[Rfam]
RNA sequence: GGGCAGGGCUUAGCUCACUUGUGAACAGCGUUUGAUUCAGCCAUGUUCACAGUGGCUAAGUUCCGCCUCUU
Numbered sequence: 001g002g003g004c005a006g007g008g009c010u011u012a013g014c015u016c017a018c019u020u021g022u023g024a025a026c027a028g029c030g031u032u033u034g035a036u037u038c039a040g041c042c043a044u045g046u047u048c049a050c051a052g053u054g055g056c057u058a059a060g061u062u063c064c065g066c067c068u069c070u071u
Stems, first nucleotide, its partner, number of pairs: 006063010021050007
RNA: mir-27 microRNA precursor family
Organism: Ophiophagus hannah